Bacillaceae-1 RNA: a 67-nucleotide sequence from Pontibacillus yanchengensis. Rfam classes the family as a small RNA. The base pairs follow the family's consensus structure, which is taken from published work. The source organism's lineage runs through Bacteria, Bacillati, Bacillota, Bacilli and Pontibacillus yanchengensis.

RNA sequence: UUAUGGGGAAGUUCGAUUAAAACCGCUACAUCACGUAGCAACAUCGAACCAACCUACGUCCUGUAGG
Dot-bracket structure: ..........(((((((.......(((((.....)))))...)))))))...(((((.....)))))